[Rfam]
RNA sequence: GAGCCAGCCAAUUAAUCUGCUUAUCUCAAUGUGCUUCUGCAGAAAUUUUGAGAAGGCUGGCAAUAGUGAUGCCAUGUUACGAGCCUUAAAGACAGCUGAAUGAAGUCUUUAAGGUCCCUGAAAAUGGCUACAGUG
Numbered sequence: 001g002a003g004c005c006a007g008c009c010a011a012u013u014a015a016u017c018u019g020c021u022u023a024u025c026u027c028a029a030u031g032u033g034c035u036u037c038u039g040c041a042g043a044a045a046u047u048u049u050g051a052g053a054a055g056g057c058u059g060g061c062a063a064u065a066g067u068g069a070u071g072c073c074a075u076g077u078u079a080c081g082a083g084c085c086u087u088a089a090a091g092a093c094a095g096c097u098g099a100a101u102g103a104a105g106u107c108u109u110u111a112a113g114g115u116c117c118c119u120g121a122a123a124a125u126g127g128c129u130a131c132a133g134u135g
Stems, first nucleotide, its partner, number of pairs: 003061005016043005071128004083115007091107003
Shown here is a 135-nucleotide RNA from Peromyscus maniculatus, a member of the family "Small nucleolar RNA SNORA33". Its family is annotated with nucleolus and RNA processing in the Gene Ontology. It is annotated as an H/ACA-box small nucleolar RNA. NCBI's taxonomy places the organism under Eukaryota, Eumetazoa, Bilateria, Boreoeutheria, Peromyscus maniculatus. ACA33 is a member of the H/ACA class of snoRNA that guide the sites of modification of uridines to pseudouridines.